[Rfam]
RNA: Small nucleolar RNA SNORD70
RNA sequence: AUGGCUGCUGUCUAUGAUUACACUUUGCUGACUGAAUUCAAUGUAGAUUUCUCAUCAGCAUUCGUCACUACCACUGAGACAGCAGCAGC
Numbered sequence: 001a002u003g004g005c006u007g008c009u010g011u012c013u014a015u016g017a018u019u020a021c022a023c024u025u026u027g028c029u030g031a032c033u034g035a036a037u038u039c040a041a042u043g044u045a046g047a048u049u050u051c052u053c054a055u056c057a058g059c060a061u062u063c064g065u066c067a068c069u070a071c072c073a074c075u076g077a078g079a080c081a082g083c084a085g086c087a088g089c
Stems, first nucleotide, its partner, number of pairs: 002088001004086009